[Rfam]
RNA sequence: CUGGGCUACGGUGAUAUGUACCCGGAGACGUGGUCGGGAAUGCUGGUGGGAGCGCUCUGUGCCUUGGCUGGUGUGCUGACCAUUGCUAUGCCUGUACCUGUCAUUGUCAACAAC
Numbered sequence: 001c002u003g004g005g006c007u008a009c010g011g012u013g014a015u016a017u018g019u020a021c022c023c024g025g026a027g028a029c030g031u032g033g034u035c036g037g038g039a040a041u042g043c044u045g046g047u048g049g050g051a052g053c054g055c056u057c058u059g060u061g062c063c064u065u066g067g068c069u070g071g072u073g074u075g076c077u078g079a080c081c082a083u084u085g086c087u088a089u090g091c092c093u094g095u096a097c098c099u100g101u102c103a104u105u106g107u108c109a110a111c112a113a114c
Base pairs, nucleotide, nucleotide: 002113004111008107009106010105011104013102014101015100016099018097019096020095021094037077038076040074049063050062

A member of the RNA family "Potassium channel RNA editing signal" from Poecilia reticulata, 114 nucleotides long. The literature on the family includes a 2004 paper in Nat Struct Mol Biol by Bhalla et al., "Control of human potassium channel inactivation by editing of a small mRNA hairpin". It scores 102 bits against the family's covariance model.